[Rfam]
Source information: A member of the RNA family "Group II catalytic intron D1-D4-6" from Candidatus Acidiferrum panamense, 221 nucleotides long. The base pairs follow the family's consensus structure. From the family's description: Group II introns are found in rRNA, tRNA and mRNA of organelles in fungi, plants and protists, and also in mRNA in bacteria.
RNA sequence: CAAGUCCACUACGAUGAAGGUCUAGCGAACCACAUCGGCCCCGAGCCGUGCGGAGGUCUCCGCGAGGAGGCAGACGAGAAGUCGGUAGGGGCGCGCGUAGGCGGGGUAUCGCGCCGCGAAAGCGGUUCAUCCAGAGUGCUGACACCGGUGGGCGAGUGGAAGGCUAUACGGACGGAGGCGCCAGCGCGAGCGUCCGUCUGACUCUGCGCGGUCUGAGAGCC
Numbered sequence: 001c002a003a004g005u006c007c008a009c010u011a012c013g014a015u016g017a018a019g020g021u022c023u024a025g026c027g028a029a030c031c032a033c034a035u036c037g038g039c040c041c042c043g044a045g046c047c048g049u050g051c052g053g054a055g056g057u058c059u060c061c062g063c064g065a066g067g068a069g070g071c072a073g074a075c076g077a078g079a080a081g082u083c084g085g086u087a088g089g090g091g092c093g094c095g096c097g098u099a100g101g102c103g104g105g106g107u108a109u110c111g112c113g114c115c116g117c118g119a120a121a122g123c124g125g126u127u128c129a130u131c132c133a134g135a136g137u138g139c140u141g142a143c144a145c146c147g148g149u150g151g152g153c154g155a156g157u158g159g160a161a162g163g164c165u166a167u168a169c170g171g172a173c174g175g176a177g178g179c180g181c182c183a184g185c186g187c188g189a190g191c192g193u194c195c196g197u198c199u200g201a202c203u204c205u206g207c208g209c210g211g212u213c214u215g216a217g218a219g220c221c
Base pairs, nucleotide, nucleotide: 012037013036014035015034016033019031020030021029023189025187026186039091040090041089042088045086046085047084048083049081051076052075056071057070058069059068060067061066110215111213113212114211115210116209117208118207132206133205134204135203136202137201138164139163140162143158144157145156169200170199171198172197173196174195175194176193178191179190